[Rfam]
RNA: Bacterial RNase P class A
RNA sequence: AAGCAAACUGGUUCUAUCGCUGUCUCGCCUUAGGCGGGAAAGAGGAAAGUCCGGGCAACAUAGAGCGACACGCUUCCUAACGGGAAGGAUUCUACUUCGGUGGAAUACAGAAAGUGCCACAGAAAAUAUACCGUCUGCCCAAUUGGGUAGGUAAGGGUGAAAACGUGAGGUAAGAGCUCACGGUAUUGUAUGGCGACAUGCAUUACGGUAAACCUCGUGUGUUGAAAGACCAAAUAGGUUACGAAACUCGAAGGCUGCUCGUCUUCUACCGGUUUAUCGGUAUUCGUAAUGGGUAGGUUGAUGGAGCUUGUGCGUAAGUGCAAGCCUAGAUAAAUGAUAGAGGACUGAUUUAUUUCGGUUACAGAACCCGGCUUACAAGGUUUGCUUCUUU
Numbered sequence: 001a002a003g004c005a006a007a008c009u010g011g012u013u014c015u016a017u018c019g020c021u022g023u024c025u026c027g028c029c030u031u032a033g034g035c036g037g038g039a040a041a042g043a044g045g046a047a048a049g050u051c052c053g054g055g056c057a058a059c060a061u062a063g064a065g066c067g068a069c070a071c072g073c074u075u076c077c078u079a080a081c082g083g084g085a086a087g088g089a090u091u092c093u094a095c096u097u098c099g100g101u102g103g104a105a106u107a108c109a110g111a112a113a114g115u116g117c118c119a120c121a122g123a124a125a126a127u128a129u130a131c132c133g134u135c136u137g138c139c140c141a142a143u144u145g146g147g148u149a150g151g152u153a154a155g156g157g158u159g160a161a162a163a164c165g166u167g168a169g170g171u172a173a174g175a176g177c178u179c180a181c182g183g184u185a186u187u188g189u190a191u192g193g194c195g196a197c198a199u200g201c202a203u204u205a206c207g208g209u210a211a212a213c214c215u216c217g218u219g220u221g222u223u224g225a226a227a228g229a230c231c232a233a234a235u236a237g238g239u240u241a242c243g244a245a246a247c248u249c250g251a252a253g254g255c256u257g258c259u260c261g262u263c264u265u266c267u268a269c270c271g272g273u274u275u276a277u278c279g280g281u282a283u284u285c286g287u288a289a290u291g292g293g294u295a296g297g298u299u300g301a302u303g304g305a306g307c308u309u310g311u312g313c314g315u316a317a318g319u320g321c322a323a324g325c326c327u328a329g330a331u332a333a334a335u336g337a338u339a340g341a342g343g344a345c346u347g348a349u350u351u352a353u354u355u356c357g358g359u360u361a362c363a364g365a366a367c368c369c370g371g372c373u374u375a376c377a378a379g380g381u382u383u384g385c386u387u388c389u390u391u
Stems, first nucleotide, its partner, number of pairs: 001387009011376001012342007020042002023039006047374003051371005056224004064275002068220005073087005088108001089106007109215002114213002116209003131156002133152008164182006185204001187202006228299004238290006267282005306325008